The family of this 36-nucleotide RNA from Kordia sp. SMS9 is "DUF805b RNA". Rfam classes the family as a cis-regulatory element. The match comes from Rfam's covariance-model search (38 bits).
RNA sequence: UUGGCGCGAUCCGAAAAGCCAUCAAUAGAGUAGGAA
Numbered sequence: 001u002u003g004g005c006g007c008g009a010u011c012c013g014a015a016a017a018g019c020c021a022u023c024a025a026u027a028g029a030g031u032a033g034g035a036a
Stems, first nucleotide, its partner, number of pairs: 002021004010035003